The record is a 70-nucleotide RNA sequence, which matches "HDV ribozyme from F. prausnitzii" in Rfam.
Gene Ontology term of the family: catalytic activity.
The family's consensus secondary structure is taken from published work.
[Rfam]
RNA sequence: GCUGCUCAAAAAGACAGCCUCCACGCGGCGAGCAGCGGGCAACGGGAAACACUCCCGGCGAAUCGUCUUU
Numbered sequence: 001g002c003u004g005c006u007c008a009a010a011a012a013g014a015c016a017g018c019c020u021c022c023a024c025g026c027g028g029c030g031a032g033c034a035g036c037g038g039g040c041a042a043c044g045g046g047a048a049a050c051a052c053u054c055c056c057g058g059c060g061a062a063u064c065g066u067c068u069u070u
Base pairs, nucleotide, nucleotide: 001036002035003034004033005032006031007030017029018028019027043057044056045055046054047053
The sequence is in the family's curated seed alignment.